[Rfam]
RNA: Small nucleolar RNA SNORA55
RNA sequence: GCACCUGAAUCUUUCCUAUUCCUUGCUGUGCAGUGCAGGUCUGGGGACAGUUGGUGCUAGAGCACGGCAGAGGAAAUCCAGAUGGGUUGCUUUCCCACUUGCUUGGUGCUCAUCUCUACAACUCUGCAACAUUU
Numbered sequence: 001g002c003a004c005c006u007g008a009a010u011c012u013u014u015c016c017u018a019u020u021c022c023u024u025g026c027u028g029u030g031c032a033g034u035g036c037a038g039g040u041c042u043g044g045g046g047a048c049a050g051u052u053g054g055u056g057c058u059a060g061a062g063c064a065c066g067g068c069a070g071a072g073g074a075a076a077u078c079c080a081g082a083u084g085g086g087u088u089g090c091u092u093u094c095c096c097a098c099u100u101g102c103u104u105g106g107u108g109c110u111c112a113u114c115u116c117u118a119c120a121a122c123u124c125u126g127c128a129a130c131a132u133u134u
Stems, first nucleotide, its partner, number of pairs: 001057005013047006021039002067127006080115008094106002